[Rfam]
RNA sequence: GACUUCAAAUGAAAAAGUCAUCAACAACAAAGUUGUAUAAAUCAUCAAUAUCUAUAACUUUUAUUUUGGUCAUUUAUUCAUCCGAUAAAGUGGUAGUAACAUUGUUCACAAAAUUUACAUAUAUCUCUUAUAGUUUAUAAAACCAUAUAAGAGAUGUGUAAAUUUUGUGAACAAUGUUACUACCACUUUAUCGGAUGAAUAAAUGACCAAAAUAAAAGUUAUAGAUAUCGAUGAGUUAUACAACUCGUUGUUGAUGACUUUUUUAGUUGAAAUC
Dot-bracket structure: .............((((((((.((.((...((((((((((.(.(((.((((((.(((((((((((((.(((((((.(((((.((((((((((.((((((.((((((((((((.((.((((((........(.((((...)))).)........)))))).)).)))))))))))).)))))).)))))))))).))))).))))))).))))))))))))).)))))).))).).))))))))))..)).)).)))))))).............
Numbered sequence: 001g002a003c004u005u006c007a008a009a010u011g012a013a014a015a016a017g018u019c020a021u022c023a024a025c026a027a028c029a030a031a032g033u034u035g036u037a038u039a040a041a042u043c044a045u046c047a048a049u050a051u052c053u054a055u056a057a058c059u060u061u062u063a064u065u066u067u068g069g070u071c072a073u074u075u076a077u078u079c080a081u082c083c084g085a086u087a088a089a090g091u092g093g094u095a096g097u098a099a100c101a102u103u104g105u106u107c108a109c110a111a112a113a114u115u116u117a118c119a120u121a122u123a124u125c126u127c128u129u130a131u132a133g134u135u136u137a138u139a140a141a142a143c144c145a146u147a148u149a150a151g152a153g154a155u156g157u158g159u160a161a162a163u164u165u166u167g168u169g170a171a172c173a174a175u176g177u178u179a180c181u182a183c184c185a186c187u188u189u190a191u192c193g194g195a196u197g198a199a200u201a202a203a204u205g206a207c208c209a210a211a212a213u214a215a216a217a218g219u220u221a222u223a224g225a226u227a228u229c230g231a232u233g234a235g236u237u238a239u240a241c242a243a244c245u246c247g248u249u250g251u252u253g254a255u256g257a258c259u260u261u262u263u264u265a266g267u268u269g270a271a272a273u274c
Stems, first nucleotide, its partner, number of pairs: 014261008023252002026249002031245010042234001044232003048228006055221013069207007077199005083193010094182006101175012114162002117159006131145001133143004
About this RNA: MIR821 microRNA precursor family: a 274-nucleotide RNA sequence from Oryza sativa. NCBI's taxonomy places the organism under Eukaryota, Euphyllophyta, Mesangiospermae, Oryzeae, Oryza sativa. Gene Ontology terms of the family: miRNA-mediated post-transcriptional gene silencing and RISC complex. The base pairs follow the family's consensus structure, which was predicted with RNAalifold.